[Rfam]
RNA sequence: UUGCCCACUCGAGGUUGUUAAUGUCUUGAGUGGCCAUUAUGAAGGGGAAGAACAUGGUUCUCUCUAAAAACCUGGGUCAGGGGACUCACCCCUGCCUCUGGACCUGUUGGGAGGAACACAA
Numbered sequence: 001u002u003g004c005c006c007a008c009u010c011g012a013g014g015u016u017g018u019u020a021a022u023g024u025c026u027u028g029a030g031u032g033g034c035c036a037u038u039a040u041g042a043a044g045g046g047g048a049a050g051a052a053c054a055u056g057g058u059u060c061u062c063u064c065u066a067a068a069a070a071c072c073u074g075g076g077u078c079a080g081g082g083g084a085c086u087c088a089c090c091c092c093u094g095c096c097u098c099u100g101g102a103c104c105u106g107u108u109g110g111g112a113g114g115a116a117c118a119c120a121a
Base pairs, nucleotide, nucleotide: 002049004047005046006045009042010041014038016036017035019030058115060113061112062111063110064109071101072100074098075097076096079093080092081091083090
Record summary:
This 121-nucleotide RNA from Stegastes partitus belongs to the Rfam family "Small nucleolar RNA SNORA26". It scores 45 bits against the family's covariance model. By type it is an H/ACA-box small nucleolar RNA. From the family's description: The snoRNA HBI-6 belong to the H/ACA family of snoRNAs, guiding the pseudouridylation of position U4522 if the 28S rRNA. HBI-6 is the human orthologue of mouse MBI-6 snoRNA. On this family, see Huttenhofer et al., EMBO J 2001: "RNomics: an experimental approach that identifies 201 candidates for novel, small, non-messenger RNAs in mouse".